[Rfam]
RNA sequence: CGCAGCCCUGUCAAAUUCGGUCCCUGCCUCCUCUGUGGUGGGGACCGGCCAACCGGCUGCCACAGCAAUUUCUGUGGUGUGUGAGCCCCACGUCCUCUUCCCCUGGGACCCUGGGGGAUAAAAUCACGCCACGGACACAU
Numbered sequence: 001c002g003c004a005g006c007c008c009u010g011u012c013a014a015a016u017u018c019g020g021u022c023c024c025u026g027c028c029u030c031c032u033c034u035g036u037g038g039u040g041g042g043g044a045c046c047g048g049c050c051a052a053c054c055g056g057c058u059g060c061c062a063c064a065g066c067a068a069u070u071u072c073u074g075u076g077g078u079g080u081g082u083g084a085g086c087c088c089c090a091c092g093u094c095c096u097c098u099u100c101c102c103c104u105g106g107g108a109c110c111c112u113g114g115g116g117g118a119u120a121a122a123a124u125c126a127c128g129c130c131a132c133g134g135a136c137a138c139a140u
Base pairs, nucleotide, nucleotide: 002060003059004058005057018047019046020045021044022043023042024041025040026039027038028037074132075131076130077129078128079127086117087116088115091114092110